The family of this 171-nucleotide RNA sequence from Nitrospirillum viridazoti is "Group II catalytic intron D1-D4-3".
Rfam's curators write: Group II introns are found in rRNA, tRNA and mRNA of organelles in fungi, plants and protists, and also in mRNA in bacteria.
NCBI's taxonomy places the organism under Bacteria, Rhodospirillales, Azospirillaceae, Nitrospirillum, Nitrospirillum viridazoti.
[Rfam]
RNA sequence: AUGAGGGCGACCGAGUGUGGGGAGGAAGCGUGGAUCGAAGCUGCGGGCCGAUGAACAAGAACCGGAUAGAAGGCGGUGUUUUCCAGGGCGAGCGGGCGUGGAGUCGCGAAGCUCUCGUGAUCAAGGGGAAACGGCGUAAAUCCGGCGAUCGUGCAGUGAAGGAAUGCGUUC
Dot-bracket structure: ((..((....))..))...........(.(((..((...((((((((.((...........((((((.....(((.(((((((..((((..((((........))))...))))............))))))).)))..)))))))).)).))))))....))...))).)